Overview: Rfam assigns this 184-nucleotide sequence from Croceibacterium xixiisoli to the family "Manganese Mn2+ riboswitch aptamer (yybP-ykoY)". Taxonomically the source falls in Croceibacterium (Bacteria, Pseudomonadati, Pseudomonadota, Alphaproteobacteria). For this family Rfam cites "Novel small RNA-encoding genes in the intergenic regions of Escherichia coli" (Argaman et al., Curr Biol, 2001). Rfam describes the family as follows. This RNA was originally discovered in E. coli during a large scale screen and was named SraF. The family was later found to exist upstream of related families of protein genes in many bacteria, including the the yybP and ykoK genes in B. subtilis. The match comes from Rfam's covariance-model search (47 bits).
RNA sequence: CGGCGGGUCAUCUGGGGAGUAGCCCACCGCCGAACCGGGCGGGUUCCGUCGUCAACAUACUUGGCCGAGAGGCCAUGGCGCGGAAAGGCGGUUUUACCGUCUCGGCGAGACCAAUGGCGCCAUGCCACCGCCGGCCGGGCGAGGGGCGAGGUGCUGUUGCGUCAGUUUCGCCCGGCUGGAAUUU
Numbered sequence: 001c002g003g004c005g006g007g008u009c010a011u012c013u014g015g016g017g018a019g020u021a022g023c024c025c026a027c028c029g030c031c032g033a034a035c036c037g038g039g040c041g042g043g044u045u046c047c048g049u050c051g052u053c054a055a056c057a058u059a060c061u062u063g064g065c066c067g068a069g070a071g072g073c074c075a076u077g078g079c080g081c082g083g084a085a086a087g088g089c090g091g092u093u094u095u096a097c098c099g100u101c102u103c104g105g106c107g108a109g110a111c112c113a114a115u116g117g118c119g120c121c122a123u124g125c126c127a128c129c130g131c132c133g134g135c136c137g138g139g140c141g142a143g144g145g146g147c148g149a150g151g152u153g154c155u156g157u158u159g160c161g162u163c164a165g166u167u168u169c170g171c172c173c174g175g176c177u178g179g180a181a182u183u184u
Stems, first nucleotide, its partner, number of pairs: 027042003044085005050080005062075005090183007